A member of the RNA family "mir-2774 microRNA precursor family" from Bombyx mori, 68 nucleotides long. For this family Rfam cites "MicroRNAs of Bombyx mori identified by Solexa sequencing" (Liu et al., BMC Genomics, 2010). The organism belongs to Bombyx, within Eukaryota. The base pairs follow the family's consensus structure, which was predicted with RNAalifold.
RNA sequence: ACAACAGUCGGACCGUCGGUCUACCGAGCAAACAUCACCCGCUCGGUGGAAGAUAAUCUCUUUGCCGU
Numbered sequence: 001a002c003a004a005c006a007g008u009c010g011g012a013c014c015g016u017c018g019g020u021c022u023a024c025c026g027a028g029c030a031a032a033c034a035u036c037a038c039c040c041g042c043u044c045g046g047u048g049g050a051a052g053a054u055a056a057u058c059u060c061u062u063u064g065c066c067g068u
Base pairs, nucleotide, nucleotide: 005064006063010059011058012057015054016053017052020050021049022048023047024046025045026044027043028042029041